RybB RNA: a 75-nucleotide RNA sequence.
[Rfam]
RNA sequence: ACUGCUUUUCUUUGAUGUCCCCAAUUUGUGGAGCCCAUCAACCCCGCCGUUUUGGUUCAAGGUUGAUGGGUUUUU
Dot-bracket structure: ...............................((((((((((((.................))))))))))))...

Pairs were carried over by alignment from the consensus structure, which was predicted with PFOLD. The family's RNA type in Rfam is small RNA. Rfam's curators write: This ncRNA was identified in a large scale screen of E. coli. The function of this short RNA is unknown. The exact 5' and 3' ends of this RNA are uncertain.